Shown here is a 74-nucleotide sequence from Methanothermus fervidus, a member of the family "tRNA".
RNA sequence: GGGCCCAUAGCUUAGCCAGGUAGAGCGCCCGGCUCAUAACCGGGCGGUCAUGGGUUCGAAUCCCAUUGGGCCCA
Numbered sequence: 001g002g003g004c005c006c007a008u009a010g011c012u013u014a015g016c017c018a019g020g021u022a023g024a025g026c027g028c029c030c031g032g033c034u035c036a037u038a039a040c041c042g043g044g045c046g047g048u049c050a051u052g053g054g055u056u057c058g059a060a061u062c063c064c065a066u067u068g069g070g071c072c073c074a
Stems, first nucleotide, its partner, number of pairs: 001073007010026004028044005050066005
The family's RNA type in Rfam is transfer RNA. Taxonomically the source falls in Methanothermus (Archaea, Methanobacteriati, Methanobacteriota, Methanothermaceae).